RNA sequence: UUUGAGAAUAGAGGUGCAAUGACCAUUAGUAUGUAAUCGGAGGAGAUGUCGCCUGUGAUGAUUACAGAAAGGGGGAUUUGCCGAAGUGAUUAGGAAUGCAUCAUCUUAGUCACUGGUCCUUCAUUUAAGAAAUGUCGGGCUGUCAUAUAGUCGAAGAAGCUAUAUGGAGGGCUAUCUCACGC
Numbered sequence: 001u002u003u004g005a006g007a008a009u010a011g012a013g014g015u016g017c018a019a020u021g022a023c024c025a026u027u028a029g030u031a032u033g034u035a036a037u038c039g040g041a042g043g044a045g046a047u048g049u050c051g052c053c054u055g056u057g058a059u060g061a062u063u064a065c066a067g068a069a070a071g072g073g074g075g076a077u078u079u080g081c082c083g084a085a086g087u088g089a090u091u092a093g094g095a096a097u098g099c100a101u102c103a104u105c106u107u108a109g110u111c112a113c114u115g116g117u118c119c120u121u122c123a124u125u126u127a128a129g130a131a132a133u134g135u136c137g138g139g140c141u142g143u144c145a146u147a148u149a150g151u152c153g154a155a156g157a158a159g160c161u162a163u164a165u166g167g168a169g170g171g172c173u174a175u176c177u178c179a180c181g182c
Base pairs, nucleotide, nucleotide: 006177008175009174010173011172016081017080018079019078023074024073032066033065034064035063036062037061038060039059085114086113087112088111089110090109091108092107093106094105095104115141116140117139118138119137122134123133124132125131143167144166145165146164147163148162149161150160151159
Background
The family of this 182-nucleotide RNA from Gracilibacillus dipsosauri is "Lysine riboswitch aptamer". The organism belongs to Gracilibacillus, within Bacteria. The literature on the family includes a 2003 paper in Cell by Mandal et al., "Riboswitches Control Fundamental Biochemical Pathways in Bacillus subtilis and Other Bacteria". Rfam's curators write: Riboswitches are metabolite binding domains within certain messenger RNAs that serve as precision sensors for their corresponding targets.